[Rfam]
Shown here is a 63-nucleotide sequence from Ramlibacter cellulosilyticus, a member of the family "Betaproteobacteria toxic small RNA".
The literature on the family includes a 2012 paper in Genome Res by Kimelman et al., "A vast collection of microbial genes that are toxic to bacteria".
Overexpression in amino aid rich medium attenuates growth, suggesting role in repressing amino acid intake and metabolism.
Taxonomically the source falls in Ramlibacter (Bacteria, Pseudomonadati, Pseudomonadota, Burkholderiales).
RNA sequence: UGUCUCCUCCACCCUCCUUUGGUGGAUUUAGCCUCCGGGUCGCAAGAUCCGGAGGCUUUUUUC
Number, nucleotide and partner (000 for none) at each position: 001u000002g000003u000004c000005u000006c000007c000008u026009c025010c024011a023012c022013c021014c000015u000016c000017c000018u000019u000020u000021g013022g012023u011024g010025g009026a008027u000028u000029u000030a000031g056032c055033c054034u000035c052036c051037g050038g049039g048040u000041c000042g000043c000044a000045a000046g000047a000048u039049c038050c037051g036052g035053a000054g033055g032056c031057u000058u000059u000060u000061u000062u000063c000